[Rfam]
RNA sequence: UGGCCACAGAAUAAGUUAUUCUGUGGCCACUUUAAGUUACGAUAAUUACUAUACUAAUUUAAGAUUAUGGUAACUCCCUCAUAAGUGAUUUAGUAUAACAUUAUGAUAAGUAUCAUCUUGAAUUAUAGUAACCCCAUGUAUCGUAAAUGUGUAUUGUUAUUAUCAUAAAUUAGUACAAAAAUUAUCGUAAAUCAAGGUGGCUAUAGAAUAAGUUAUUCUGUGGCCA
Numbered sequence: 001u002g003g004c005c006a007c008a009g010a011a012u013a014a015g016u017u018a019u020u021c022u023g024u025g026g027c028c029a030c031u032u033u034a035a036g037u038u039a040c041g042a043u044a045a046u047u048a049c050u051a052u053a054c055u056a057a058u059u060u061a062a063g064a065u066u067a068u069g070g071u072a073a074c075u076c077c078c079u080c081a082u083a084a085g086u087g088a089u090u091u092a093g094u095a096u097a098a099c100a101u102u103a104u105g106a107u108a109a110g111u112a113u114c115a116u117c118u119u120g121a122a123u124u125a126u127a128g129u130a131a132c133c134c135c136a137u138g139u140a141u142c143g144u145a146a147a148u149g150u151g152u153a154u155u156g157u158u159a160u161u162a163u164c165a166u167a168a169a170u171u172a173g174u175a176c177a178a179a180a181a182u183u184a185u186c187g188u189a190a191a192u193c194a195a196g197g198u199g200g201c202u203a204u205a206g207a208a209u210a211a212g213u214u215a216u217u218c219u220g221u222g223g224c225c226a
Stems, first nucleotide, its partner, number of pairs: 001226014016211018037190011050177001052175010063164003067160003072154001079145001085141003088137002091130002094127005101120001